Rfam assigns this 98-nucleotide sequence from Levilactobacillus bambusae to the family "Purine riboswitch aptamer". From the family's description: Riboswitches are metabolite binding domains within certain messenger RNAs that serve as precision sensors for their corresponding targets. Allosteric rearrangement of mRNA structure is mediated by ligand binding, and this results in modulation of gene expression. NCBI's taxonomy places the organism under Bacteria, Bacillati, Bacillota, Lactobacillales, Levilactobacillus.
[Rfam]
RNA sequence: CCAGAAUCCUAAUUAUUUGUUUAUAUAAGGCCGUAAUAUGGACGGCAGUCUCUACCCAACGCCGUAAACGUUGGACUAUAAGCAGAAAGUGAGCGCAA
Numbered sequence: 001c002c003a004g005a006a007u008c009c010u011a012a013u014u015a016u017u018u019g020u021u022u023a024u025a026u027a028a029g030g031c032c033g034u035a036a037u038a039u040g041g042a043c044g045g046c047a048g049u050c051u052c053u054a055c056c057c058a059a060c061g062c063c064g065u066a067a068a069c070g071u072u073g074g075a076c077u078a079u080a081a082g083c084a085g086a087a088a089g090u091g092a093g094c095g096c097a098a
Stems, first nucleotide, its partner, number of pairs: 018084008030046005056074006